[Rfam]
RNA sequence: AUGUAAAAUUACUGUAAGUUGCUUUGGAUAAAAGCGUCUACUAAAUGGCAUUUA
Numbered sequence: 001a002u003g004u005a006a007a008a009u010u011a012c013u014g015u016a017a018g019u020u021g022c023u024u025u026g027g028a029u030a031a032a033a034g035c036g037u038c039u040a041c042u043a044a045a046u047g048g049c050a051u052u053u054a
Base pairs, nucleotide, nucleotide: 013043014041015040016039020036021035022034023033024032025031
UnaL2 LINE 3' element: a 54-nucleotide RNA sequence from Oncorhynchus kisutch. The match comes from Rfam's covariance-model search (64 bits). The base pairs follow the family's consensus structure, which is taken from published work.